[Rfam]
Shown here is a 132-nucleotide sequence from Jacana jacana, a member of the family "Small nucleolar RNA SNORA1". Lineage of the source: Eukaryota > Bilateria > Chordata > Aves > Jacana. From the family's description: ACA1 is a member of the H/ACA class of snoRNA that guide the sites of modification of uridines to pseudouridines. Rfam 15.1 lists 1,282 matches to the family in 515 species. Rfam links the family to the GO terms nucleolus and RNA processing.
RNA sequence: UGCCUCGUUAUUCAGCAAAUAGACACAACUCACUCUGUGUCUGAAUUGAAAAACGUGGCUAGAAGAGUAACAGGUUGUGCUUUCCCCACUGUACAGGUAGUUGCAGUGGUGACAAUGAGACCUGUAACAGGC
Number, nucleotide and partner (000 for none) at each position: 001u000002g059003c058004c057005u000006c055007g054008u053009u000010a000011u000012u000013c000014a000015g000016c000017a000018a000019a000020u000021a042022g041023a040024c039025a038026c037027a036028a000029c000030u000031c000032a000033c000034u000035c000036u027037g026038u025039g024040u023041c022042u021043g000044a000045a000046u000047u000048g000049a000050a000051a000052a000053a008054c007055g006056u000057g004058g003059c002060u000061a000062g000063a000064a000065g000066a000067g000068u000069a000070a125071c124072a123073g122074g121075u000076u000077g000078u000079g000080c000081u000082u000083u000084c111085c000086c109087c108088a107089c106090u000091g000092u000093a000094c000095a000096g000097g000098u000099a000100g000101u000102u000103g000104c000105a000106g089107u088108g087109g086110u000111g084112a000113c000114a000115a000116u000117g000118a000119g000120a000121c074122c073123u072124g071125u070126a000127a000128c000129a000130g000131g000132c000